[Rfam]
RNA: FMN riboswitch aptamer (RFN element)
RNA sequence: CAGUAUCUUCAGGGCGGGGCGAAAUUCCCCACCGGCGGUAAAGGAAGCUUUGAUUCAAGACUUCCCAAGUCCGCGAGCGCGUCAGCGUUGAAUCGGUGAAACUCCGAUACCGACAGUACAGUCUGGAUGGAAGAAGAUACGC
Numbered sequence: 001c002a003g004u005a006u007c008u009u010c011a012g013g014g015c016g017g018g019g020c021g022a023a024a025u026u027c028c029c030c031a032c033c034g035g036c037g038g039u040a041a042a043g044g045a046a047g048c049u050u051u052g053a054u055u056c057a058a059g060a061c062u063u064c065c066c067a068a069g070u071c072c073g074c075g076a077g078c079g080c081g082u083c084a085g086c087g088u089u090g091a092a093u094c095g096g097u098g099a100a101a102c103u104c105c106g107a108u109a110c111c112g113a114c115a116g117u118a119c120a121g122u123c124u125g126g127a128u129g130g131a132a133g134a135a136g137a138u139a140c141g142c
Base pairs, nucleotide, nucleotide: 003140004139005138006137007136008135009134010133017029018028019027031122032121033112034111035074036073037072038071069110070109077088078087079086092108093107094106095105096104114125115124116123